Annotation
Guanidine-II riboswitch aptamer (mini-ykkC): a 47-nucleotide RNA from Thioclava dalianensis. NCBI's taxonomy places the organism under Bacteria, Pseudomonadota, Alphaproteobacteria, Paracoccaceae, Thioclava. Simpler in structure and has fewer highly conserved nucleotide positions than the ykkC-yxkD leader. Despite this each of its two stem-loop structures directly bind free guanidine. The family's consensus secondary structure is taken from published work.
RNA sequence: CUGCGAGGACGACCUCCCCGAUCUGGUCCAUAGCCGGGACGACCCGG
Numbered sequence: 001c002u003g004c005g006a007g008g009a010c011g012a013c014c015u016c017c018c019c020g021a022u023c024u025g026g027u028c029c030a031u032a033g034c035c036g037g038g039a040c041g042a043c044c045c046g047g
Base pairs, nucleotide, nucleotide: 001020003018005016006015007014008013034047035046036045037044038043